[Rfam]
RNA sequence: AAAUGAUUAAGAACCCGUUGAAUCAAGUAAUGUAAUAUUGAUUCAAGGGGUUCUCACAAA
Numbered sequence: 001a002a003a004u005g006a007u008u009a010a011g012a013a014c015c016c017g018u019u020g021a022a023u024c025a026a027g028u029a030a031u032g033u034a035a036u037a038u039u040g041a042u043u044c045a046a047g048g049g050g051u052u053c054u055c056a057c058a059a060a
Stems, first nucleotide, its partner, number of pairs: 008056001010054007018046007025036001

The record is a 60-nucleotide sequence from Vigna angularis, which matches "Plastid-ccsA-ndhD-1 3UTR RNA" in Rfam. Rfam's curators write: Plastid-ccsA-ndhD-1 is a non-coding RNA (ncRNA) recognised in plastids. It was found in the three prime untranslated region (3UTR) of ccsA and ndhD genes, its 3UTR location suggests a role in transcript maturation. Taxonomically the source falls in Vigna angularis (Eukaryota, Embryophyta, fabids, Vigna). A reference for the family is Stern and Gruissem (1987), "Control of plastid gene expression: 3' inverted repeats act as mRNA processing and stabilizing elements, but do not terminate transcription", Cell. A search with the family's covariance model found it, with a score of 57 bits.